[Rfam]
RNA: Burkholderia RNA 7 (anti-hemB)
RNA sequence: CCUCCCGCUACCUCCCUGAGCGGGUGCCUUGUUCGAAGGCCUUUUGCCCCCCGGUCACUACCGUAUCCGCCGGGGGCUUUUUCU
Numbered sequence: 001c002c003u004c005c006c007g008c009u010a011c012c013u014c015c016c017u018g019a020g021c022g023g024g025u026g027c028c029u030u031g032u033u034c035g036a037a038g039g040c041c042u043u044u045u046g047c048c049c050c051c052c053g054g055u056c057a058c059u060a061c062c063g064u065a066u067c068c069g070c071c072g073g074g075g076g077c078u079u080u081u082u083c084u
Stems, first nucleotide, its partner, number of pairs: 004024006026040005048076008